Source information
Shown here is a 167-nucleotide RNA sequence from Yersinia frederiksenii, a member of the family "Yersinia YenS sRNA". It is annotated as a small RNA. NCBI's taxonomy places the organism under Bacteria, Pseudomonadati, Gammaproteobacteria, Enterobacterales, Yersinia frederiksenii. For this family Rfam cites "The quorum-hindered transcription factor YenR of Yersinia enterocolitica inhibits pheromone production and promotes motility via a small non-coding RNA" (Tsai and Winans, Mol Microbiol, 2011). The base pairs follow the family's consensus structure, which was predicted with mfold.
Nucleotides: 167
Base pairs, nucleotide, nucleotide: 001124002123003122004121011037012036013035014034015033017032018031019030021028039060040059041058042057043056044055045054046053063113064112067110068109069108071106073104076087077086078085089100090099133162134161135160136159137158138157139156140155141154142153143152144151
Number, partner (000 for none) and nucleotide at each position: 001124g002123c003122u004121u005000u006000a007000c008000a009000g010000a011037a012036u013035u014034a015033g016000u017032u018031u019030u020000a021028a022000a023000u024000a025000u026000a027000a028021u029000a030019g031018a032017g033015c034014u035013a036012a037011u038000a039060u040059c041058u042057u043056a044055g045054c046053g047000c048000a049000c050000u051000a052000a053046u054045g055044c056043u057042a058041a059040g060039a061000a062000a063113g064112u065000u066000a067110g068109a069108c070000u071106g072000c073104a074000a075000a076087g077086a078085a079000u080000a081000u082000a083000u084000u085078u086077u087076c088000g089100c090099c091000a092000a093000c094000a095000c096000c097000a098000g099090g100089g101000g102000a103000c104073u105000u106071u107000u108069g109068u110067c111000c112064a113063c114000c115000a116000a117000c118000a119000c120000c121004a122003g123002g124001u125000u126000u127000u128000a129000c130000c131000c132000u133162g134161c135160c136159a137158u138157c139156u140155g141154g142153a143152u144151g145000g146000c147000u148000u149000u150000a151144c152143a153142u154141u155140c156139a157138g158137a159136u160135g161134g162133c163000g164000a165000c166000u167000a